[Rfam]
Background: This 81-nucleotide RNA from Schwartzia succinivorans belongs to the Rfam family "ZMP/ZTP riboswitch aptamer (pfl RNA motif)". A search with the family's covariance model found it, with a score of 61 bits. NCBI's taxonomy places the organism under Bacteria, Bacillati, Bacillota, Schwartzia, Schwartzia succinivorans.
RNA sequence: AUUUCUUUGCAGGACUGACGGAUAAGUGGAAUUGACCACAUGUACUGCAAAGUGAAUCAGCCGACCGUCUGGGCAGAGAAC
Numbered sequence: 001a002u003u004u005c006u007u008u009g010c011a012g013g014a015c016u017g018a019c020g021g022a023u024a025a026g027u028g029g030a031a032u033u034g035a036c037c038a039c040a041u042g043u044a045c046u047g048c049a050a051a052g053u054g055a056a057u058c059a060g061c062c063g064a065c066c067g068u069c070u071g072g073g074c075a076g077a078g079a080a081c
Stems, first nucleotide, its partner, number of pairs: 003054001005052008015042001017069005026039004058076001060074003